[Rfam]
RNA sequence: UUCUUAUCAAGAGUGGUGGAGGGACUGGCCCAAUGAAACCCGACAACCAGCAUUUUUAAAUGUAUGGUGUUAAUUCCAGCAGAUAUCCAUCUGUAAAGAUAAGAA
Dot-bracket structure: ((((((((....(.(((...(((.[[[[)))......))))((((.((.((((......))))..))))))...(]]]](((((....)))))...)))))))))
RNA: SAM riboswitch aptamer (S box leader)